A member of the RNA family "nhaA-I RNA" from Pseudomonas sp. PAMC 25886, 63 nucleotides long.
It is one of the family's seed sequences.
[Rfam]
RNA sequence: GGGUGCGCUGCUGCAUACGCUACAGCGCAGGUUAAAGGAUAAGCAUUGGUCGGGCCGCCAAUG
Numbered sequence: 001g002g003g004u005g006c007g008c009u010g011c012u013g014c015a016u017a018c019g020c021u022a023c024a025g026c027g028c029a030g031g032u033u034a035a036a037g038g039a040u041a042a043g044c045a046u047u048g049g050u051c052g053g054g055c056c057g058c059c060a061a062u063g
Stems, first nucleotide, its partner, number of pairs: 005028006044063007
Dot-bracket structure: ....((((((............))))))...............(((((((......)))))))
Source information
Pairs were carried over by alignment from the consensus structure, which is taken from published work.